The family of this 101-nucleotide RNA is "pemK RNA". Rfam classes the family as a cis-regulatory element. It is one of the family's seed sequences.
RNA sequence: ACAAUGAUACUUCCGUCCAGUCCUAAAGCCGAGCGAGAUAAAACCGUCACAGCAAAGGAGGGCGGCUCCGGGAGACCCUCGGGGUGGUGAGAUUCCAAUGA
Numbered sequence: 001a002c003a004a005u006g007a008u009a010c011u012u013c014c015g016u017c018c019a020g021u022c023c024u025a026a027a028g029c030c031g032a033g034c035g036a037g038a039u040a041a042a043a044c045c046g047u048c049a050c051a052g053c054a055a056a057g058g059a060g061g062g063c064g065g066c067u068c069c070g071g072g073a074g075a076c077c078c079u080c081g082g083g084g085u086g087g088u089g090a091g092a093u094u095c096c097a098a099u100g101a
Base pairs, nucleotide, nucleotide: 012098013065014064015063016062017061018060066084067083068082070080071079072078085097086096087095